[Rfam]
RNA sequence: AAGCAGAUUGGCCUUCUCUUCCCAGUUCUUCCCAGAGUUGGGAAAAGCUGGGUUGAGAGG
Numbered sequence: 001a002a003g004c005a006g007a008u009u010g011g012c013c014u015u016c017u018c019u020u021c022c023c024a025g026u027u028c029u030u031c032c033c034a035g036a037g038u039u040g041g042g043a044a045a046a047g048c049u050g051g052g053u054u055g056a057g058a059g060g
Base pairs, nucleotide, nucleotide: 014059015058016057017056018055021052022051023050024049025048029044030043031042032041033040034039
Dot-bracket structure: .............(((((..(((((...((((((....))))))...)))))..))))).